A member of the RNA family "Lysine riboswitch aptamer" from Anaeromassilibacillus sp. An200, 177 nucleotides long. Taxonomically the source falls in Anaeromassilibacillus (Bacteria, Bacillati, Eubacteriales, Acutalibacteraceae). It scores 101 bits against the family's covariance model.
[Rfam]
RNA sequence: AAAAAGGAUAGAGGUGCGGUUUUAAUCAGUAGGGUUUUCCAAGGCCUGCCAGGGCCGGUGAGGAAAACCGGAAAGGUAACGCCGCCGAAGGUGCCCGCUUGGCAGGCGGCCCUGGUUGCCGGCAUGAAGAAUACGGCAACUGUCAUCAUUUUGGUAUGAUGGAGCGCUAUCCAGACG
Numbered sequence: 001a002a003a004a005a006g007g008a009u010a011g012a013g014g015u016g017c018g019g020u021u022u023u024a025a026u027c028a029g030u031a032g033g034g035u036u037u038u039c040c041a042a043g044g045c046c047u048g049c050c051a052g053g054g055c056c057g058g059u060g061a062g063g064a065a066a067a068c069c070g071g072a073a074a075g076g077u078a079a080c081g082c083c084g085c086c087g088a089a090g091g092u093g094c095c096c097g098c099u100u101g102g103c104a105g106g107c108g109g110c111c112c113u114g115g116u117u118g119c120c121g122g123c124a125u126g127a128a129g130a131a132u133a134c135g136g137c138a139a140c141u142g143u144c145a146u147c148a149u150u151u152u153g154g155u156a157u158g159a160u161g162g163a164g165c166g167c168u169a170u171c172c173a174g175a176c177g
Stems, first nucleotide, its partner, number of pairs: 006172006016085005022079003033069008089113003092108004114141007122134001124132002143162007